[Rfam]
RNA: Selenocysteine transfer RNA
Organism: Tricholaema leucomelas
RNA sequence: GCCUGGACAGCCCUCAGUGGUCUGGAGUGCAGGCUUCAAACUUGUAGCUGUCUGCCAACAGAGUGGUUCAAUUCCACCUUUCAGGU
Numbered sequence: 001g002c003c004u005g006g007a008c009a010g011c012c013c014u015c016a017g018u019g020g021u022c023u024g025g026a027g028u029g030c031a032g033g034c035u036u037c038a039a040a041c042u043u044g045u046a047g048c049u050g051u052c053u054g055c056c057a058a059c060a061g062a063g064u065g066g067u068u069c070a071a072u073u074c075c076a077c078c079u080u081u082c083a084g085g086u
Stems, first nucleotide, its partner, number of pairs: 001086007012027001014025004028046006048061004063077004